Record summary:
A member of the RNA family "Guanidine-II riboswitch aptamer (mini-ykkC)" from Mobiluncus mulieris, 47 nucleotides long.

RNA sequence: CCUCGGGGACGACCCUGCGGCUGUGUUUUCAUCAGGGGACGGCCCCA
Numbered sequence: 001c002c003u004c005g006g007g008g009a010c011g012a013c014c015c016u017g018c019g020g021c022u023g024u025g026u027u028u029u030c031a032u033c034a035g036g037g038g039a040c041g042g043c044c045c046c047a
Stems, first nucleotide, its partner, number of pairs: 001020002004017005035046004